RNA sequence: AGCGAGACUAGAGUCACAUCCUGAUGCUGCUCGUGGUCCUGGUGUGCUAUAGUUCUCGCAGAGUAACUCUCUGCUUAUUCAUUGGCUGCUGCUUUUCAUUGCCCAGCCAGUCACCAGCUCAGAAACAAGC
Numbered sequence: 001a002g003c004g005a006g007a008c009u010a011g012a013g014u015c016a017c018a019u020c021c022u023g024a025u026g027c028u029g030c031u032c033g034u035g036g037u038c039c040u041g042g043u044g045u046g047c048u049a050u051a052g053u054u055c056u057c058g059c060a061g062a063g064u065a066a067c068u069c070u071c072u073g074c075u076u077a078u079u080c081a082u083u084g085g086c087u088g089c090u091g092c093u094u095u096u097c098a099u100u101g102c103c104c105a106g107c108c109a110g111u112c113a114c115c116a117g118c119u120c121a122g123a124a125a126c127a128a129g130c
Stems, first nucleotide, its partner, number of pairs: 002059005007053003012048002015046006023038003069122002073118003081111005087105002
Small nucleolar RNA SNORA3/SNORA45 family: a 130-nucleotide sequence from Cyprinus carpio.
Gene Ontology terms of the family: nucleolus and RNA processing.
The match comes from Rfam's covariance-model search (87 bits).
The members of this family belong to the H/ACA class of snoRNAs which are thought to guide the sites of modification of uridines to pseudouridines. This family includes mouse snoMBI-28 and human homologues ACA3 (SNORA3) and ACA3-2 (SNORA45). Both ACA3 and ACA3-2 share the same host gene.
Rfam 15.1 lists 2,080 matches to the family in 639 species.
The base pairs follow the family's consensus structure, which was predicted with RNAalifold.
By type it is an H/ACA-box small nucleolar RNA.
Clan: SNORA3 clan.
The source organism's lineage runs through Eukaryota, Ostariophysi, Cypriniphysae, Cypriniformes and Cyprinus.